[Rfam]
RNA sequence: UGACAGCACAUUAUUACUUUUGGUACGCGCUGUGACACUUCAAACUCGUACCGUGAGUAAUAAUGCGUGGUCA
Numbered sequence: 001u002g003a004c005a006g007c008a009c010a011u012u013a014u015u016a017c018u019u020u021u022g023g024u025a026c027g028c029g030c031u032g033u034g035a036c037a038c039u040u041c042a043a044a045c046u047c048g049u050a051c052c053g054u055g056a057g058u059a060a061u062a063a064u065g066c067g068u069g070g071u072c073a
Stems, first nucleotide, its partner, number of pairs: 009065010021053007029045001
mir-126 microRNA precursor family: a 73-nucleotide sequence from Rattus norvegicus. Taxonomically the source falls in Rattus (Eukaryota, Sarcopterygii, Amniota, Murinae). Rfam links the family to the GO terms RISC complex and miRNA-mediated post-transcriptional gene silencing. A reference for the family is Altuvia et al. (2005), "Clustering and conservation patterns of human microRNAs", Nucleic Acids Res. Rfam 15.1 lists 1,407 matches to the family in 631 species.